Fluoride riboswitch aptamer (crcB RNA motif): a 60-nucleotide RNA sequence from Paenibacillus sp. OAS669. The match comes from Rfam's covariance-model search (60 bits). NCBI's taxonomy places the organism under Bacteria, Bacillati, Bacilli, Caryophanales, Paenibacillus.
RNA sequence: AGUGAAUCGGGCGAUGGAGUUCGCCAUAACCGCCUUUGGGCUAAUGACUCCUACCAGUGG
Numbered sequence: 001a002g003u004g005a006a007u008c009g010g011g012c013g014a015u016g017g018a019g020u021u022c023g024c025c026a027u028a029a030c031c032g033c034c035u036u037u038g039g040g041c042u043a044a045u046g047a048c049u050c051c052u053a054c055c056a057g058u059g060g
Stems, first nucleotide, its partner, number of pairs: 010025004016051006032041003